[Rfam]
Nucleotides: 066
Stems, first nucleotide, its partner, number of pairs: 001066007009058003014053003020041009
Number, partner (000 for none) and nucleotide at each position: 001066c002065u003064c004063g005062c006061u007060u008000g009058g010057c011056c012000c013000a014053a015052c016051c017000g018000a019000a020041g021040g022039c023038c024037u025036g026035c027034g028033u029000u030000u031000a032000u033028a034027c035026g036025u037024g038023g039022g040021u041020u042000a043000c044000u045000g046000a047000u048000g049000u050000a051016g052015g053014u054000g055000a056011g057010g058009c059000g060007g061006g062005g063004c064003g065002a066001g
DUF3800-VIII RNA: a 66-nucleotide sequence. Bacteroidetes, Cyanobacteria, Firmicutes, Planctomycetes (1 example), Proteobacteria, Tenericutes (1 example). It is one of the family's seed sequences. It is annotated as a small RNA.